[Rfam]
RNA: U12 minor spliceosomal RNA
Organism: Cuscuta europaea
RNA sequence: UUGCCUUAAACUAAUGAGUAAGGAAAACAAAGCAAACGGUGAGAGCCGGUUGCCGCGUCCUUUGUAAGUGGCGCAAGAAUUUAUGGAGGGGUUAUAGGCUGGCCGGGCGUUGACGCUGCUUACUUUGCAGAACUCGUACGUGCGGGCCUCCC
Numbered sequence: 001u002u003g004c005c006u007u008a009a010a011c012u013a014a015u016g017a018g019u020a021a022g023g024a025a026a027a028c029a030a031a032g033c034a035a036a037c038g039g040u041g042a043g044a045g046c047c048g049g050u051u052g053c054c055g056c057g058u059c060c061u062u063u064g065u066a067a068g069u070g071g072c073g074c075a076a077g078a079a080u081u082u083a084u085g086g087a088g089g090g091g092u093u094a095u096a097g098g099c100u101g102g103c104c105g106g107g108c109g110u111u112g113a114c115g116c117u118g119c120u121u122a123c124u125u126u127g128c129a130g131a132a133c134u135c136g137u138a139c140g141u142g143c144g145g146g147c148c149u150c151c152c
Stems, first nucleotide, its partner, number of pairs: 004023005032053004037048003055074005090152002096149005102143001104140002107137003116130004